[Rfam]
RNA sequence: CUGCACAGUGAACAGCCAAGUGUACUUUAUAGUUCCUUGGUUACAACUUGUGCUACAGUAAGUCUUGUACUUUUCCUCUGCAUUGGAAGAAACAUUUCUUUUACAUGCAUUCAUAAGUACAGUACAUUG
Numbered sequence: 001c002u003g004c005a006c007a008g009u010g011a012a013c014a015g016c017c018a019a020g021u022g023u024a025c026u027u028u029a030u031a032g033u034u035c036c037u038u039g040g041u042u043a044c045a046a047c048u049u050g051u052g053c054u055a056c057a058g059u060a061a062g063u064c065u066u067g068u069a070c071u072u073u074u075c076c077u078c079u080g081c082a083u084u085g086g087a088a089g090a091a092a093c094a095u096u097u098c099u100u101u102u103a104c105a106u107g108c109a110u111u112c113a114u115a116a117g118u119a120c121a122g123u124a125c126a127u128u129g
Base pairs, nucleotide, nucleotide: 003053004052005051006050007049008048010047016040017039018038019037020036022035024033025032026031055071058068059067060066077115079113080112081107082106083105085102086101087100088099089098090097091096
Overview:
Shown here is a 129-nucleotide sequence from Geotrypetes seraphini, a member of the family "Small nucleolar RNA SNORA22". ACA22 is a member of the H/ACA class of snoRNA that guide the sites of modification of uridines to pseudouridines. The match comes from Rfam's covariance-model search (90 bits). It is annotated as an H/ACA-box small nucleolar RNA. Its family is annotated with nucleolus and RNA processing in the Gene Ontology.